The family of this 223-nucleotide sequence from Listeria monocytogenes is "Listeria sRNA rliE". The family's consensus secondary structure was predicted with WAR. The source organism's lineage runs through Bacteria, Bacillota, Listeriaceae, Listeria and Listeria monocytogenes serotype 4b. The sequence is in the family's curated seed alignment.
RNA sequence: UGAAUGAACGACAUAAAUACUGCACUAUAAAUAGCUAAUAAAAAGUAAAUCAUCUGUCACCUCCUAGUUGUUAAAAACAGAAUAGCAGAGACGAAAUCUUUUUGCACAUAGCUAAAAUCACUUUUCCACCUUCUAUUGCAUAACAAAAACACCUAUUUUCAUUAGUGGAAAACAGGUGUUUUUAUAUAUUUUAUCUUCUGAAAAUCCUUUUUUAGCUAUUUGU
Numbered sequence: 001u002g003a004a005u006g007a008a009c010g011a012c013a014u015a016a017a018u019a020c021u022g023c024a025c026u027a028u029a030a031a032u033a034g035c036u037a038a039u040a041a042a043a044a045g046u047a048a049a050u051c052a053u054c055u056g057u058c059a060c061c062u063c064c065u066a067g068u069u070g071u072u073a074a075a076a077a078c079a080g081a082a083u084a085g086c087a088g089a090g091a092c093g094a095a096a097u098c099u100u101u102u103u104g105c106a107c108a109u110a111g112c113u114a115a116a117a118u119c120a121c122u123u124u125u126c127c128a129c130c131u132u133c134u135a136u137u138g139c140a141u142a143a144c145a146a147a148a149a150c151a152c153c154u155a156u157u158u159u160c161a162u163u164a165g166u167g168g169a170a171a172a173c174a175g176g177u178g179u180u181u182u183u184a185u186a187u188a189u190u191u192u193a194u195c196u197u198c199u200g201a202a203a204a205u206c207c208u209u210u211u212u213u214a215g216c217u218a219u220u221u222g223u
Stems, first nucleotide, its partner, number of pairs: 027223011040212006051070002054067003078200004085105007145183010156172005
Dot-bracket structure: ..........................(((((((((((..((((((.....((.(((........))).)).......((((...(((((((.......))))))).......................................((((((((((.(((((.......))))).)))))))))).............))))......)))))))))))))))))